The record is a 57-nucleotide RNA from Hymenochirus boettgeri, which matches "U7 small nuclear RNA" in Rfam. Lineage of the source: Eukaryota > Bilateria > Gnathostomata > Pipoidea > Hymenochirus. About the family: Animal histone pre-mRNAs are spliced by a different mechanism than nuclear pre-mRNAs and self-splicing introns. This processing involves the U7 snRNP, which contains only one RNA species: U7. For this family Rfam cites "3' end processing of mouse histone pre-mRNA: evidence for additional base-pairing between U7 snRNA and pre-mRNA" (Spycher et al., Nucleic Acids Res, 1994). It scores 44 bits against the family's covariance model.
[Rfam]
RNA sequence: UAGUGUUUACAGCUCUUUUGCUAUUUGUCUAGCAGGUUCUCACUGAGUGGGGCCACU
Number, nucleotide and partner (000 for none) at each position: 001u000002a000003g000004u000005g000006u000007u000008u000009a000010c000011a000012g000013c000014u000015c000016u000017u000018u000019u000020g000021c000022u000023a000024u000025u000026u000027g000028u000029c000030u000031a000032g000033c000034a000035g054036g053037u052038u051039c050040u000041c049042a048043c047044u000045g000046a000047g043048u042049g041050g039051g038052g037053c036054c035055a000056c000057u000